[Rfam]
Notes
A member of the RNA family "Glycine riboswitch aptamer" from Radiobacillus deserti, 91 nucleotides long.
RNA sequence: AUGAAUACAAAAGGAGAGACUACGAUUUCGUAGCGCCGACGGAGCAAACUUUUUAUGUGAAUCUCUCAGGCAAAAAGACUUUUGUGUGACG
Numbered sequence: 001a002u003g004a005a006u007a008c009a010a011a012a013g014g015a016g017a018g019a020c021u022a023c024g025a026u027u028u029c030g031u032a033g034c035g036c037c038g039a040c041g042g043a044g045c046a047a048a049c050u051u052u053u054u055a056u057g058u059g060a061a062u063c064u065c066u067c068a069g070g071c072a073a074a075a076a077g078a079c080u081u082u083u084g085u086g087u088g089a090c091g
Base pairs, nucleotide, nucleotide: 006086007085008084009083010082011081012080013079020033021032022031023030035071036070037069038067039066042065043064044063048058049057

Lineage of the source: Bacteria > Bacillota > Bacilli > Bacillaceae > Radiobacillus.